[Rfam]
RNA sequence: CCAUAAUGAUGAUGAUUUAAAACAUCUUAUAUUCAUGUGAUGAUUACAACCUCCUACUCAUACUGA
Numbered sequence: 001c002c003a004u005a006a007u008g009a010u011g012a013u014g015a016u017u018u019a020a021a022a023c024a025u026c027u028u029a030u031a032u033u034c035a036u037g038u039g040a041u042g043a044u045u046a047c048a049a050c051c052u053c054c055u056a057c058u059c060a061u062a063c064u065g066a
Base pairs, nucleotide, nucleotide: 006061007060008059009058023042026037

Shown here is a 66-nucleotide RNA sequence from Turnera subulata, a member of the family "Small nucleolar RNA Z105". The organism belongs to Turnera, within Eukaryota. It is annotated as a C/D-box small nucleolar RNA. The match comes from Rfam's covariance-model search (52 bits). Pairs were carried over by alignment from the consensus structure, which was predicted with CMfinder.